Shown here is an 86-nucleotide RNA from Psylliodes chrysocephalus, a member of the family "mir-317 microRNA precursor family".
RNA sequence: AUAAUCAGGUACUGGGGUCCACGCUGUGUUUUCUGAAAUUUUGAAACAGUGAACACAGCUGGUGGUAUCUCAGUAUCUUUUUGUUA
Numbered sequence: 001a002u003a004a005u006c007a008g009g010u011a012c013u014g015g016g017g018u019c020c021a022c023g024c025u026g027u028g029u030u031u032u033c034u035g036a037a038a039u040u041u042u043g044a045a046a047c048a049g050u051g052a053a054c055a056c057a058g059c060u061g062g063u064g065g066u067a068u069c070u071c072a073g074u075a076u077c078u079u080u081u082u083g084u085u086a
Stems, first nucleotide, its partner, number of pairs: 008077005015071001016069002020065001021063002024058003028054001030052002
The family has 25 seed sequences and 153 matches in Rfam 15.1.
For this family Rfam cites "Systematic discovery and characterization of fly microRNAs using 12 Drosophila genomes" (Stark et al., Genome Res, 2007).